[Rfam]
RNA: c-di-AMP riboswitch aptamer (ydaO/yuaA leader)
Organism: Paenibacillus sp. NEAU-GSW1
RNA sequence: UAUUCCUUAUCGCUAAAUUUCCGUAAUGGAAAACGGGGGAACCAAUCUUGAAGACUUGCCGAGAAAGCGGGCAUUCUUCGAAUGGGGUGAAUCCUGAUCCGUCAGGUAGGGCGACUCUCGCCGUCCGAAUCCGUCAGCUAACCUCGUCAGCGUUGAAUGAGAGAAGGG
Number, nucleotide and partner (000 for none) at each position: 001u000002a000003u000004u000005c000006c000007u000008u000009a000010u000011c152012g151013c150014u149015a000016a000017a000018u032019u031020u030021c029022c028023g000024u000025a000026a000027u000028g022029g021030a020031a019032a018033a147034c146035g145036g144037g143038g142039g000040a000041a000042c000043c084044a083045a000046u000047c000048u000049u000050g000051a000052a000053g000054a000055c000056u000057u000058g000059c000060c000061g000062a000063g000064a000065a000066a000067g000068c000069g000070g000071g000072c000073a000074u000075u000076c000077u000078u000079c000080g000081a000082a000083u044084g043085g132086g131087g130088u000089g000090a000091a000092u000093c106094c105095u104096g103097a000098u000099c000100c000101g000102u000103c096104a095105g094106g093107u000108a000109g126110g125111g124112c123113g000114a000115c000116u000117c000118u000119c000120g000121c000122c000123g112124u111125c110126c109127g000128a000129a000130u087131c086132c085133g000134u000135c000136a000137g000138c000139u000140a000141a000142c038143c037144u036145c035146g034147u033148c000149a014150g013151c012152g011153u000154u000155g000156a000157a000158u000159g000160a000161g000162a000163g000164a000165a000166g000167g000168g000